[Rfam]
RNA: t44 RNA
RNA sequence: CAGCGGCACCAAUGAUUCCACACGUACGCCGACACGAUUUGCUGGGUGCCCGCAUGGGUGGCAGAUCGGGGCGUGCGGAGGCUUAAC
Numbered sequence: 001c002a003g004c005g006g007c008a009c010c011a012a013u014g015a016u017u018c019c020a021c022a023c024g025u026a027c028g029c030c031g032a033c034a035c036g037a038u039u040u041g042c043u044g045g046g047u048g049c050c051c052g053c054a055u056g057g058g059u060g061g062c063a064g065a066u067c068g069g070g071g072c073g074u075g076c077g078g079a080g081g082c083u084u085a086a087c
Stems, first nucleotide, its partner, number of pairs: 023077008035068009048059004